About this RNA:
Nuclear RNase P: a 293-nucleotide RNA from Neolamprologus brichardi. The source organism's lineage runs through Eukaryota, Gnathostomata, Neoteleostei, Eurypterygia and Neolamprologus. Ribonuclease P (RNase P) is a ubiquitous endoribonuclease, found in archaea, bacteria and eukarya as well as chloroplasts and mitochondria. The base pairs follow the family's consensus structure, which is taken from published work.
[Rfam]
RNA sequence: GUGGGAGGAAGCUCAUUGACGAGGUCACGUGCCGAGUGCUUGUCACUCUACCAAUCACCUUGGGGAAGGUCUGAGAGAAGAGCCAAUCGUUGCCCUUGCAGGGCAUCACCUGAAUGCGGGUGAGCGAGUGAACAGAAAGCGUGGGUCAAUGAGAGCAGGUGUAGCAGGAGAAGCCGGUCAGCGCGGUGGAUGCGUCUCUCUGGUGACUUGGAAGCGCUCGCGGCUGGCGAUUGAGUGCGAUGGAUGAGGUGGGGCAGAUCUCCACAACCUAAUUCAGACUACUCUCCCCCCAC
Number, nucleotide and partner (000 for none) at each position: 001g293002u292003g291004g290005g000006a000007g287008g286009a285010a000011g000012c248013u247014c246015a245016u244017u243018g000019a000020c062021g061022a060023g059024g058025u000026c000027a000028c000029g000030u000031g000032c000033c000034g048035a047036g046037u045038g044039c000040u000041u000042g000043u000044c038045a037046c036047u035048c034049u000050a000051c000052c000053a000054a000055u000056c000057a000058c024059c023060u022061u021062g020063g000064g000065g000066a000067a000068g000069g000070u000071c277072u276073g275074a274075g273076a000077g000078a000079a000080g000081a225082g224083c223084c222085a000086a000087u000088c000089g000090u000091u105092g104093c103094c102095c101096u000097u000098g000099c000100a000101g095102g094103g093104c092105a091106u123107c122108a121109c120110c119111u118112g000113a000114a000115u000116g000117c000118g111119g110120g109121u108122g107123a106124g221125c220126g219127a218128g217129u216130g215131a000132a000133c000134a000135g000136a000137a000138a000139g000140c000141g000142u000143g000144g207145g000146u000147c000148a000149a000150u000151g000152a000153g000154a000155g000156c000157a000158g000159g000160u000161g000162u000163a000164g000165c000166a000167g000168g000169a000170g000171a000172a000173g000174c000175c000176g000177g000178u000179c000180a000181g000182c000183g000184c000185g000186g000187u000188g000189g000190a000191u000192g000193c000194g000195u000196c000197u000198c000199u000200c000201u000202g000203g000204u000205g000206a000207c144208u000209u000210g000211g000212a000213a000214g000215c130216g129217c128218u127219c126220g125221c124222g084223g083224c082225u081226g000227g000228c000229g000230a000231u000232u000233g000234a000235g000236u000237g000238c000239g000240a000241u000242g000243g017244a016245u015246g014247a013248g012249g265250u264251g263252g262253g261254g260255c000256a000257g000258a000259u000260c254261u253262c252263c251264a250265c249266a000267a000268c000269c000270u000271a000272a000273u075274u074275c073276a072277g071278a000279c000280u000281a000282c000283u000284c000285u009286c008287c007288c000289c000290c004291c003292a002293c001